[Rfam]
RNA sequence: AUUGCAAGUGAUGUUAAACUAGACAGGGACAUCAGACUUCUUUGAAAUAUGAUGAUUUGUCUUGGGAAUCUCUCUGAUGCAUG
Numbered sequence: 001a002u003u004g005c006a007a008g009u010g011a012u013g014u015u016a017a018a019c020u021a022g023a024c025a026g027g028g029a030c031a032u033c034a035g036a037c038u039u040c041u042u043u044g045a046a047a048u049a050u051g052a053u054g055a056u057u058u059g060u061c062u063u064g065g066g067a068a069u070c071u072c073u074c075u076g077a078u079g080c081a082u083g
Base pairs, nucleotide, nucleotide: 003081004080005079006078
RNA: Small nucleolar RNA R44/J54/Z268 family